[Rfam]
RNA sequence: GUGCUUCUGGAGCGUGACGGUCAUGGCCGCCACGACAGUAAGUUUGAUCUGGUCUUGCCGCUGGGAGGCUGCGCGUCUGACGACGUUUGCGGCCACCCACCGCCACCACGCAUUUACAGAAACCGCACGCCGUUUGGCGUGUAGGUCUGGCGCAGUUUCCGCAACGGGCAACCGAUGCGGCGAUGUAGAUAGCAAGAAUUACCA
Numbered sequence: 001g002u003g004c005u006u007c008u009g010g011a012g013c014g015u016g017a018c019g020g021u022c023a024u025g026g027c028c029g030c031c032a033c034g035a036c037a038g039u040a041a042g043u044u045u046g047a048u049c050u051g052g053u054c055u056u057g058c059c060g061c062u063g064g065g066a067g068g069c070u071g072c073g074c075g076u077c078u079g080a081c082g083a084c085g086u087u088u089g090c091g092g093c094c095a096c097c098c099a100c101c102g103c104c105a106c107c108a109c110g111c112a113u114u115u116a117c118a119g120a121a122a123c124c125g126c127a128c129g130c131c132g133u134u135u136g137g138c139g140u141g142u143a144g145g146u147c148u149g150g151c152g153c154a155g156u157u158u159c160c161g162c163a164a165c166g167g168g169c170a171a172c173c174g175a176u177g178c179g180g181c182g183a184u185g186u187a188g189a190u191a192g193c194a195a196g197a198a199u200u201a202c203c204a
Base pairs, nucleotide, nucleotide: 004042005041006040013034014033015032016031018029019028020027021026053197054196055195056194057193058192059102060101062099063098064097065096109152110151111150117149118148119147120146123145124144128139129138130137131136156183157182159180160179161178162177163176165174166173167172
RNA: RT-15 RNA